[Rfam]
RNA sequence: GGCGAUAAACGCGCGCGGAAUAAGCGGUUCGGACCCGGGGGCGGUACCCGGCGGCUCCACCAACACCCGUUCAUUGGCGGGAAUGGGGCCGAAACAGGAUCGACGGACGUGUAAAGGCGUUAUGCUUUCGCUCGGUGGGAUUCGCCGUUAUCGGAUCGAAAAGUACAGUUGCCAAUGACAACCGUGCUCAGGUGGCCGUCGCUGCGUAA
Dot-bracket structure: (((((.......((((........((..(((...(((((.......)))))(((((((..........................)))))))............))).)).......)))).......)))))((((.......))))..............................................................
Rfam assigns this 209-nucleotide RNA sequence from Rubrimonas cliftonensis to the family "permuted transfer-messenger RNA".
The source organism's lineage runs through Bacteria, Pseudomonadota, Alphaproteobacteria, Paracoccaceae and Rubrimonas.
About the family: Bacterial tmRNA, also known as 10Sa RNA or SsrA, is named for its dual tRNA and mRNA-like properties.
Rfam classes the family as a non-coding RNA gene.
A search with the family's covariance model found it, with a score of 140 bits.
Gene Ontology term of the family: RNA catabolic process.